[Rfam]
Nucleotides: 192
Base pairs, nucleotide, nucleotide: 062191063190065188066187082186083185085183086182088179089178090177097134098133099132100131101130106126107125108124109123110122111121112120113119137162138161139160140159141158142157
Number, partner (000 for none) and nucleotide at each position: 001000a002000c003000a004000u005000a006000a007000c008000a009000u010000a011000a012000a013000a014000a015000c016000c017000a018000c019000a020000a021000u022000c023000a024000c025000a026000u027000a028000a029000u030000a031000c032000a033000c034000a035000a036000a037000c038000a039000c040000a041000u042000a043000c044000g045000g046000c047000u048000g049000a050000a051000g052000a053000g054000g055000a056000c057000c058000c059000u060000a061000g062191u063190u064000g065188g066187u067000c068000c069000u070000a071000a072000a073000a074000c075000g076000g077000c078000c079000u080000g081000a082186g083185g084000u085183a086182g087000a088179g089178g090177g091000g092000u093000u094000u095000u096000a097134g098133u099132c100131g101130g102000u103000a104000g105000g106126u107125c108124c109123g110122a111121g112120g113119a114000c115000u116000c117000c118000u119113u120112c121111c122110u123109c124108g125107g126106g127000a128000a129000u130101c131100c132099g133098a134097c135000a136000c137162u138161a139160c140159c141158c142157a143000g144000u145000c146000g147000u148000a149000c150000g151000g152000a153000c154000g155000g156000c157142u158141g159140g160139g161138u162137a163000u164000c165000u166000u167000u168000u169000g170000a171000a172000g173000a174000u175000u176000u177090c178089c179088c180000c181000u182086c183085u184000u185083c186082c187066a188065c189000g190063a191062a192000a